[Rfam]
RNA sequence: GCACAGAAUAAAACUUGCGGGAUGAGAACCUGCCGCAGGUUCGGGUCGAACGCAGUGAGACAACGUUGUUUAACAACGGCCCGCAGGGCGAGCGAAGCGAGUCAUCCUGCACGACCCACCA
Numbered sequence: 001g002c003a004c005a006g007a008a009u010a011a012a013a014c015u016u017g018c019g020g021g022a023u024g025a026g027a028a029c030c031u032g033c034c035g036c037a038g039g040u041u042c043g044g045g046u047c048g049a050a051c052g053c054a055g056u057g058a059g060a061c062a063a064c065g066u067u068g069u070u071u072a073a074c075a076a077c078g079g080c081c082c083g084c085a086g087g088g089c090g091a092g093c094g095a096a097g098c099g100a101g102u103c104a105u106c107c108u109g110c111a112c113g114a115c116c117c118a119c120c121a
Stems, first nucleotide, its partner, number of pairs: 016111006023104001033088002040085001042083002047057002064078006